Rfam assigns this 73-nucleotide RNA sequence from Treponema bryantii to the family "tRNA". By type it is a transfer RNA. Taxonomically the source falls in Treponema (Bacteria, Pseudomonadati, Treponematales, Treponemataceae). Pairs were carried over by alignment from the consensus structure, which is taken from published work.
RNA sequence: GGGCCAUUAGCUCAGUGGUUAGAGCAGAGGACUCAUAAUCCUUUGGUCCUUAGUUCAAGUCUAAGAUGGCCCA
Numbered sequence: 001g002g003g004c005c006a007u008u009a010g011c012u013c014a015g016u017g018g019u020u021a022g023a024g025c026a027g028a029g030g031a032c033u034c035a036u037a038a039u040c041c042u043u044u045g046g047u048c049c050u051u052a053g054u055u056c057a058a059g060u061c062u063a064a065g066a067u068g069g070c071c072c073a
Base pairs, nucleotide, nucleotide: 001072002071003070004069005068006067007066010025011024012023013022027043028042029041030040031039049065050064051063052062053061